Description:
Selenocysteine insertion sequence 1: a 66-nucleotide sequence. By type it is a cis-regulatory element.

[Rfam]
RNA sequence: CCGGCACUCAUGAAGGUCUGCCUGAAAACCAGCCUGCUGGUGGGGCAGUCCUGAGGACCUGGCGUG
Numbered sequence: 001c002c003g004g005c006a007c008u009c010a011u012g013a014a015g016g017u018c019u020g021c022c023u024g025a026a027a028a029c030c031a032g033c034c035u036g037c038u039g040g041u042g043g044g045g046c047a048g049u050c051c052u053g054a055g056g057a058c059c060u061g062g063c064g065u066g
Base pairs, nucleotide, nucleotide: 001066004063005062015051016050018048019047020046021045022044023043030039031038032037
Dot-bracket structure: (..((.........((.((((((......(((....)))...)))))).))..........))..)